Source information:
The record is a 471-nucleotide sequence from Roseibium sp. RKSG952, which matches "Giant, ornate, lake- and Lactobacillales-derived (GOLLD) RNA" in Rfam. For this family Rfam cites "Exceptional structured noncoding RNAs revealed by bacterial metagenome analysis" (Weinberg et al., Nature, 2009). Lineage of the source: Bacteria > Pseudomonadati > Pseudomonadota > Alphaproteobacteria > Roseibium.
RNA sequence: AUUUGGCGUGUUGUAUUCUUGCGGUCAAAAGUCGUGGGAGCAACUGGGACAGCGCGUCGAAGUGACUUGCGAUUAGCUCAGAUGGACAGAGCAACGGUUUAUGAUACCGUCGGUCGCGGGUUCAAUUCCCGUAUCGAUUGAAAAACGCAAAGACUGUCCCGGUUGGACCUGAAAGAUGCCUAAGCCUUGGCACGAAAGUGAACCAAGGUCCUGGAAGUCCGCAAGACGGAAGGGAUUGACGCGGAAGCGUUCGUUGGGGUCGCGCCCCCAUAACAGCUCGCAAGGCUGACGGAUGUGGAAAUGUCGAAGUGGGUCUGACGACGAGAGAAAAGCCACUCUCUAAAAAAGGCGGCAUUGAUCGGAUACCGCGUUACAUCGAGAGAUGAGCGUGUGUGGAUGAGACGGCAACCAGGACCGCAAGUCCUCGGGUACUCCGUGAAGACCGAUCGCCAAAGGCCGUAAUCUCAGGCC
Dot-bracket structure: .(((((((((((((..(((((((((.....)))))))))))))).[[[[[[[.)))))))).....................................................................................{{.....]]]]]]].(((((((((.....[[[[[....(((((((((....)))..))))))((((....(((.}}..)))....))))..((((.........((((.((((......))))....(((((.....))))))))).........)))).....)))))))))............(((..(.......)..)))]]]]].(((.((.(((((((((.............)))))).)))[[[...((((............................)))).....)).))).......(((...]]]...))).